[Rfam]
RNA sequence: CGGGGAAAGAAGACCCUGUUGAGCUUGACUCUAGUCUGACAUUGUGAAAUGACUUAGGGGGUGUAGCAUAAGUGGGAGCUGUGGUGAUCUUGAAAUACCACUACUCUUAAUGUCAUUUUACUUAUUCUGUGAAGCUGGGGCUUACUUGAUUGUGAUUUUUUGAAUCAAAGUUGUUUUUCGGGAUAUCUGUUUUAUGUGGAAGACAUCAUCAGGUGGGGAGUUUGGCUGGGGCGGCACAUCUGUUAAAUGAUAACGCAGGUGUCCUAAGGUGAGCUCAAUGAGAACAGAAAUCUCAUGUGGACCAAAAGGGGAAAAGCUUGCUUGAUUUUCAUUUUCAGUAUGAAUACAAACUGUGAAAACAUGGCCUAUCGAUCCUUUAGGUCUGAAAAAUGUUCAGCUAGAGGUGUCAGAAAAGUUACCACAGGGAUAACUGGCUUGUGGCAGCCAAGCGUUCACAGCGACGUUGCUUUUUGAUCCUUCGAUGUCGGCUCUUCCUAUCAUUGAGACGCAGAAGUCCCAAAGUGUCGGAUUGUUCACCCGCCAAUAGGGAACGUGAGCUGGGUUUAGACCGUCGUGAGAAGGUUAGUUUUACCCUA
Numbered sequence: 001c002g003g004g005g006a007a008a009g010a011a012g013a014c015c016c017u018g019u020u021g022a023g024c025u026u027g028a029c030u031c032u033a034g035u036c037u038g039a040c041a042u043u044g045u046g047a048a049a050u051g052a053c054u055u056a057g058g059g060g061g062u063g064u065a066g067c068a069u070a071a072g073u074g075g076g077a078g079c080u081g082u083g084g085u086g087a088u089c090u091u092g093a094a095a096u097a098c099c100a101c102u103a104c105u106c107u108u109a110a111u112g113u114c115a116u117u118u119u120a121c122u123u124a125u126u127c128u129g130u131g132a133a134g135c136u137g138g139g140g141c142u143u144a145c146u147u148g149a150u151u152g153u154g155a156u157u158u159u160u161u162g163a164a165u166c167a168a169a170g171u172u173g174u175u176u177u178u179c180g181g182g183a184u185a186u187c188u189g190u191u192u193u194a195u196g197u198g199g200a201a202g203a204c205a206u207c208a209u210c211a212g213g214u215g216g217g218g219a220g221u222u223u224g225g226c227u228g229g230g231g232c233g234g235c236a237c238a239u240c241u242g243u244u245a246a247a248u249g250a251u252a253a254c255g256c257a258g259g260u261g262u263c264c265u266a267a268g269g270u271g272a273g274c275u276c277a278a279u280g281a282g283a284a285c286a287g288a289a290a291u292c293u294c295a296u297g298u299g300g301a302c303c304a305a306a307a308g309g310g311g312a313a314a315a316g317c318u319u320g321c322u323u324g325a326u327u328u329u330c331a332u333u334u335u336c337a338g339u340a341u342g343a344a345u346a347c348a349a350a351c352u353g354u355g356a357a358a359a360c361a362u363g364g365c366c367u368a369u370c371g372a373u374c375c376u377u378u379a380g381g382u383c384u385g386a387a388a389a390a391u392g393u394u395c396a397g398c399u400a401g402a403g404g405u406g407u408c409a410g411a412a413a414a415g416u417u418a419c420c421a422c423a424g425g426g427a428u429a430a431c432u433g434g435c436u437u438g439u440g441g442c443a444g445c446c447a448a449g450c451g452u453u454c455a456c457a458g459c460g461a462c463g464u465u466g467c468u469u470u471u472u473g474a475u476c477c478u479u480c481g482a483u484g485u486c487g488g489c490u491c492u493u494c495c496u497a498u499c500a501u502u503g504a505g506a507c508g509c510a511g512a513a514g515u516c517c518c519a520a521a522g523u524g525u526c527g528g529a530u531u532g533u534u535c536a537c538c539c540g541c542c543a544a545u546a547g548g549g550a551a552c553g554u555g556a557g558c559u560g561g562g563u564u565u566a567g568a569c570c571g572u573c574g575u576g577a578g579a580a581g582g583u584u585a586g587u588u589u590u591a592c593c594c595u596a
Base pairs, nucleotide, nucleotide: 003595004594005593007590008589015425016424017423018422020421021420022417023416024415025414026413028221029220030219031218035213036212037211038210039209044121045120046119047118048117049116050115051114052113053112054110055109056108057107058106059105060104071102072101073100074099075098078085079084125201126200127199128198129197137192138191143152144151169188170187172185173184224237225235226234227233238260239259240258241257242256243255263364264363269321270320271319272318273317274316275301276300278296279295280294281293282292283291302311303310326350327349328348331345332344333343334342352361353360354359375403376402377401378400379399380398383397384396385395386394434475436473438472440468441467442466443465444464445463449459450458486561487559488558489557490556491553492550493549494548495547496546499524500523502519503518505516506515507514526540527539528538530536567584568583569582570581572579573578
A member of the RNA family "Eukaryotic large subunit ribosomal RNA" from Alexandrium catenella, 596 nucleotides of a longer RNA. Its family is annotated with ribosome and structural constituent of ribosome in the Gene Ontology.